[Rfam]
RNA: c-di-AMP riboswitch aptamer (ydaO/yuaA leader)
Organism: Paenibacillus sp. IHBB 10380
RNA sequence: GCACGAUAAAAGCCAAAUUCCUUGGCACCAGGGAGCGGGGGAACCAUGAUAUGGGUGAAUUGAUCUCGCAUUAGAGGGAUCAUAGGGGACCUUCAACCGAAUCCUUAAGCUAACCUCGCAGGCAUUGGAAGGGGAAUAU
Numbered sequence: 001g002c003a004c005g006a007u008a009a010a011a012g013c014c015a016a017a018u019u020c021c022u023u024g025g026c027a028c029c030a031g032g033g034a035g036c037g038g039g040g041g042a043a044c045c046a047u048g049a050u051a052u053g054g055g056u057g058a059a060u061u062g063a064u065c066u067c068g069c070a071u072u073a074g075a076g077g078g079a080u081c082a083u084a085g086g087g088g089a090c091c092u093u094c095a096a097c098c099g100a101a102u103c104c105u106u107a108a109g110c111u112a113a114c115c116u117c118g119c120a121g122g123c124a125u126u127g128g129a130a131g132g133g134g135a136a137u138a139u
Stems, first nucleotide, its partner, number of pairs: 012123003018034005035119006053104003061082007085098002